[Rfam]
RNA sequence: UAAUAACAUCAGGAGCAGUUUCUUUAUUGAAACUCGCCAACCGAGUCAGUAAGACAGCGGUGGUUUGAUCCAUAAAUGGUAGAUGUGCCCAAAAGGGAAACAUAUAAAGCCACCU
Numbered sequence: 001u002a003a004u005a006a007c008a009u010c011a012g013g014a015g016c017a018g019u020u021u022c023u024u025u026a027u028u029g030a031a032a033c034u035c036g037c038c039a040a041c042c043g044a045g046u047c048a049g050u051a052a053g054a055c056a057g058c059g060g061u062g063g064u065u066u067g068a069u070c071c072a073u074a075a076a077u078g079g080u081a082g083a084u085g086u087g088c089c090c091a092a093a094a095g096g097g098a099a100a101c102a103u104a105u106a107a108a109g110c111c112a113c114c115u
Base pairs, nucleotide, nucleotide: 006086007085008084009083010082015035017034018033019032020031021030036064037063038062041060042059043058045055046054047053049110050109088097089096090095
A member of the RNA family "SAM-I/IV (S-adenosyl methionine) riboswitch aptamer", 115 nucleotides long. Its Rfam clan is "SAM clan". The family's consensus secondary structure is taken from published work. Gene Ontology terms of the family: S-adenosylmethionine metabolic process and regulation of gene expression.